Rfam assigns this 68-nucleotide RNA from Endobacterium cereale to the family "S-element". Pairs were carried over by alignment from the consensus structure, which is taken from published work. It is annotated as a cis-regulatory element. The source organism's lineage runs through Bacteria, Pseudomonadati, Alphaproteobacteria, Hyphomicrobiales and Endobacterium.
[Rfam]
RNA sequence: AGUCAAGAGUCUUAGGCAUCGUUUUGGUGAGCGGAUUUCUGUUGCCUAACUGAAGGCGAAGGAAAAUG
Numbered sequence: 001a002g003u004c005a006a007g008a009g010u011c012u013u014a015g016g017c018a019u020c021g022u023u024u025u026g027g028u029g030a031g032c033g034g035a036u037u038u039c040u041g042u043u044g045c046c047u048a049a050c051u052g053a054a055g056g057c058g059a060a061g062g063a064a065a066a067u068g
Base pairs, nucleotide, nucleotide: 010063011062012061013060017058019056020055022054023053024052026050029047031045032044033043034042

This family represents a group of S-elements from p42d and related plasmids. The S-element has multiple functions and is believed to act as a negative regulator of repC transcription, be required for efficient replication and act as a translational enhancer of repC. Its family is annotated with translation regulator activity and mRNA transcription in the Gene Ontology. It scores 68 bits against the family's covariance model.